[Rfam]
RNA: int-alpA RNA
Organism: Rubripirellula obstinata
RNA sequence: GCCACGGCUAGGACUGUACAUCCGAAAGCUGGUUUCCUAUGACCGGCCCGCCGUGGCGUUUUAUCACCAUAGGG
Numbered sequence: 001g002c003c004a005c006g007g008c009u010a011g012g013a014c015u016g017u018a019c020a021u022c023c024g025a026a027a028g029c030u031g032g033u034u035u036c037c038u039a040u041g042a043c044c045g046g047c048c049c050g051c052c053g054u055g056g057c058g059u060u061u062u063a064u065c066a067c068c069a070u071a072g073g074g
Base pairs, nucleotide, nucleotide: 001057002056003055004054005053006052007051008050011023012022013021028047029046030045031044032043036074037073038072